[Rfam]
RNA sequence: GGAUUCUUUCUCAACUUGCUUUCGGAGCCACGAUCGAGUUCAUUAGUAACUUAAAUGCUCUGGGGAAAGUCCCCGAACCUCUGACGAAGAGCGAUCGCGCUGUAAUGGGUGCUGUCCUACUCUCUGUUUGCCGUGCGUUGAAGGUUUACCUGAGCUGGCAAGCAUUACAAGGGGUAGGAAAUAGUUCAAUGCCAUACAGUCAUGCAAGUGUGACCCGAUAGGUGUCGCUGUACAGAAUGGGGCUUAUUGAGGGUGGAUC
Numbered sequence: 001g002g003a004u005u006c007u008u009u010c011u012c013a014a015c016u017u018g019c020u021u022u023c024g025g026a027g028c029c030a031c032g033a034u035c036g037a038g039u040u041c042a043u044u045a046g047u048a049a050c051u052u053a054a055a056u057g058c059u060c061u062g063g064g065g066a067a068a069g070u071c072c073c074c075g076a077a078c079c080u081c082u083g084a085c086g087a088a089g090a091g092c093g094a095u096c097g098c099g100c101u102g103u104a105a106u107g108g109g110u111g112c113u114g115u116c117c118u119a120c121u122c123u124c125u126g127u128u129u130g131c132c133g134u135g136c137g138u139u140g141a142a143g144g145u146u147u148a149c150c151u152g153a154g155c156u157g158g159c160a161a162g163c164a165u166u167a168c169a170a171g172g173g174g175u176a177g178g179a180a181a182u183a184g185u186u187c188a189a190u191g192c193c194a195u196a197c198a199g200u201c202a203u204g205c206a207a208g209u210g211u212g213a214c215c216c217g218a219u220a221g222g223u224g225u226c227g228c229u230g231u232a233c234a235g236a237a238u239g240g241g242g243c244u245u246a247u248u249g250a251g252g253g254u255g256g257a258u259c
Stems, first nucleotide, its partner, number of pairs: 002259005008253004014209006022063007036052005067245003071242004083095001085093002097112004115179002120177002123174003129170001135155002143150002212228001216224001

Notes: The record is a 259-nucleotide sequence from Araneus ventricosus, which matches "RNase MRP" in Rfam. Rfam classes the family as a ribozyme.